[Rfam]
The family of this 383-nucleotide part of an RNA from Borreliella burgdorferi is "Bacterial large subunit ribosomal RNA". It is one of the family's seed sequences. Lineage of the source: Bacteria > Spirochaetota > Borreliaceae > Borreliella > Borreliella burgdorferi.
RNA sequence: GAAAAAAUGGGUGAGAUUCCCAUUCGCCGAAAACCUAAGGUUUCCUGGGUAAAGGUCGUCUUCCCAGGGUUAGUCGGCCCCUAAGGCAAAGCUGAAAAGUGUAGUCGAUGGGAAACGGGUUAAUAUUCCCGUACCUCUUAUAGUUUCGAUGGAGUGACGCAUGAGGUUAACUACUGCUAGGCGAUGGUUGUCCUAGUUUAAGCAUUAAGGUGAUGAUCUUGAUAGGAAAAUCCGUUAAGAGAGCUAAGAUGUGAUGAUGAGUGCUAUUUAGGUAGCAUGAAAUGUAGGUAGUCAAGGUGCCAAGAAAUAGCUUCUAAGGUUAGGCUAUAAGGGACCGUACCGCAAACCGACACAGGUAGGUGGGAUGAAAAUUCUAAGGCGCG
Numbered sequence: 001g002a003a004a005a006a007a008u009g010g011g012u013g014a015g016a017u018u019c020c021c022a023u024u025c026g027c028c029g030a031a032a033a034c035c036u037a038a039g040g041u042u043u044c045c046u047g048g049g050u051a052a053a054g055g056u057c058g059u060c061u062u063c064c065c066a067g068g069g070u071u072a073g074u075c076g077g078c079c080c081c082u083a084a085g086g087c088a089a090a091g092c093u094g095a096a097a098a099g100u101g102u103a104g105u106c107g108a109u110g111g112g113a114a115a116c117g118g119g120u121u122a123a124u125a126u127u128c129c130c131g132u133a134c135c136u137c138u139u140a141u142a143g144u145u146u147c148g149a150u151g152g153a154g155u156g157a158c159g160c161a162u163g164a165g166g167u168u169a170a171c172u173a174c175u176g177c178u179a180g181g182c183g184a185u186g187g188u189u190g191u192c193c194u195a196g197u198u199u200a201a202g203c204a205u206u207a208a209g210g211u212g213a214u215g216a217u218c219u220u221g222a223u224a225g226g227a228a229a230a231u232c233c234g235u236u237a238a239g240a241g242a243g244c245u246a247a248g249a250u251g252u253g254a255u256g257a258u259g260a261g262u263g264c265u266a267u268u269u270a271g272g273u274a275g276c277a278u279g280a281a282a283u284g285u286a287g288g289u290a291g292u293c294a295a296g297g298u299g300c301c302a303a304g305a306a307a308u309a310g311c312u313u314c315u316a317a318g319g320u321u322a323g324g325c326u327a328u329a330a331g332g333g334a335c336c337g338u339a340c341c342g343c344a345a346a347c348c349g350a351c352a353c354a355g356g357u358a359g360g361u362g363g364g365a366u367g368a369a370a371a372u373u374c375u376a377a378g379g380c381g382c383g
Stems, first nucleotide, its partner, number of pairs: 006024006025381004033361004039341002044068006053061002075337003080111002085106003089102001091100003115132005135333011146319002151314005159300004165293003171287004176197006198257002202252004209245003217240007225233002261278007347356002363375003